Record summary
The record is a 63-nucleotide sequence from Equus caballus, which matches "mir-423 microRNA precursor family" in Rfam.

RNA sequence: AGGCUGAGGGGCAGAGAGCGAGACUUUUCUAUUUUCCAAAAGCUCGGUCUGAGGCCCCUCAGU
Dot-bracket structure: ..((((((((((..(((.((((.(((((.........))))))))).)))...))))))))))
Gene Ontology terms of the family: RISC complex and miRNA-mediated post-transcriptional gene silencing. The sequence is in the family's curated seed alignment. The base pairs follow the family's consensus structure, which was predicted with RNAalifold.